The record is a 402-nucleotide sequence from a Flavobacteriales bacterium, which matches "Bacterial RNase P class A" in Rfam.

RNA sequence: GGCUAGAGCCGACCUAUCGCUCUGUAAAGUGUACAGAGAGGAAAGUCCGGGCAGCAAAGGGUGCCGCACCUUGCGAAAGCAAGGGUGCAAGUCGCAAAGUCUUGUAACAGACAGUGCCACAGAAAUCAGACCGCCCCCUGCUAUGCCGGGGGCAAGGGUGAAAAGGUGGGGUAAGAGCCCACCGAUGUAAAAGGCAACUUUUACAGUCAGGAAAACCUUGCGGGCUGAAAGACCAAAUAAACCCUGCUUUUGGGGUUACUCGCUCCAGUUAGUUUUUCACUACGGCAGGAAGGGUAGGUCGAUUGUGGUUAUGUGCAAACAUAAUCCCAGAUAAAUGAUAGGUAAUGUAGUUUAGACUUCUAAACUACAAAACAGAACCCGGCUUACAGGCUCUUUACGCUA
Numbered sequence: 001g002g003c004u005a006g007a008g009c010c011g012a013c014c015u016a017u018c019g020c021u022c023u024g025u026a027a028a029g030u031g032u033a034c035a036g037a038g039a040g041g042a043a044a045g046u047c048c049g050g051g052c053a054g055c056a057a058a059g060g061g062u063g064c065c066g067c068a069c070c071u072u073g074c075g076a077a078a079g080c081a082a083g084g085g086u087g088c089a090a091g092u093c094g095c096a097a098a099g100u101c102u103u104g105u106a107a108c109a110g111a112c113a114g115u116g117c118c119a120c121a122g123a124a125a126u127c128a129g130a131c132c133g134c135c136c137c138c139u140g141c142u143a144u145g146c147c148g149g150g151g152g153c154a155a156g157g158g159u160g161a162a163a164a165g166g167u168g169g170g171g172u173a174a175g176a177g178c179c180c181a182c183c184g185a186u187g188u189a190a191a192a193g194g195c196a197a198c199u200u201u202u203a204c205a206g207u208c209a210g211g212a213a214a215a216c217c218u219u220g221c222g223g224g225c226u227g228a229a230a231g232a233c234c235a236a237a238u239a240a241a242c243c244c245u246g247c248u249u250u251u252g253g254g255g256u257u258a259c260u261c262g263c264u265c266c267a268g269u270u271a272g273u274u275u276u277u278c279a280c281u282a283c284g285g286c287a288g289g290a291a292g293g294g295u296a297g298g299u300c301g302a303u304u305g306u307g308g309u310u311a312u313g314u315g316c317a318a319a320c321a322u323a324a325u326c327c328c329a330g331a332u333a334a335a336u337g338a339u340a341g342g343u344a345a346u347g348u349a350g351u352u353u354a355g356a357c358u359u360c361u362a363a364a365c366u367a368c369a370a371a372a373c374a375g376a377a378c379c380c381g382g383c384u385u386a387c388a389g390g391c392u393c394u395u396u397a398c399g400c401u402a
Base pairs, nucleotide, nucleotide: 001398005394006393007392008391009390010389011387012343013342014341015340016339017338018337020038021037022036023035024034025033026032043385044384045383047382048381049380050379051378052227053226054225055224059278060277061276064223065222066221067220068219069084070083071082072081073080085108086106087105088104089103090102091101109218110217114216115215117211118210131157132156133153134152135151136150137149138148140146141145165183166182167181168180169179170178185207186205187204188203189202190201191200192199193198231300232299233298234297243289244288245287246286270282271281272280273279307326308325309324310323311322312321313320314319
Notes: By type it is a ribozyme. It scores 247 bits against the family's covariance model. About the family: Ribonuclease P (RNase P) is a ubiquitous endoribonuclease, found in archaea, bacteria and eukarya as well as chloroplasts and mitochondria. Its Rfam clan is "RNaseP clan".